[Rfam]
RNA sequence: ACCAUAACUACACAAGCACUGACUUGAGUUGUAUAUGCAGUAAGUGCUACUUGUUGGGGUAGUUUUG
Numbered sequence: 001a002c003c004a005u006a007a008c009u010a011c012a013c014a015a016g017c018a019c020u021g022a023c024u025u026g027a028g029u030u031g032u033a034u035a036u037g038c039a040g041u042a043a044g045u046g047c048u049a050c051u052u053g054u055u056g057g058g059g060u061a062g063u064u065u066u067g
Base pairs, nucleotide, nucleotide: 001060002059003058005056010054011053012052015048016047017046018045019044020043022041023040024039
RNA: miR-430 microRNA precursor family
Organism: Etheostoma spectabile